[Rfam]
RNA sequence: AGCUGGAUGGGGUCCACCGCCCGGGUGACCACCAGGUAGUCGCGUAACGCGAUGCCGUGCCGGUUUUC
Numbered sequence: 001a002g003c004u005g006g007a008u009g010g011g012g013u014c015c016a017c018c019g020c021c022c023g024g025g026u027g028a029c030c031a032c033c034a035g036g037u038a039g040u041c042g043c044g045u046a047a048c049g050c051g052a053u054g055c056c057g058u059g060c061c062g063g064u065u066u067u068c
Stems, first nucleotide, its partner, number of pairs: 004063001006061001008059002011030003015027004035056004040052005
The family of this 68-nucleotide RNA sequence from Mycobacterium talmoniae is "ASdes TB sRNA". Taxonomically the source falls in Mycobacterium (Bacteria, Bacillati, Actinomycetota, Mycobacteriales). A search with the family's covariance model found it, with a score of 82 bits. Rfam 15.1 lists 1,192 matches to the family in 825 species. The base pairs follow the family's consensus structure, which is taken from published work.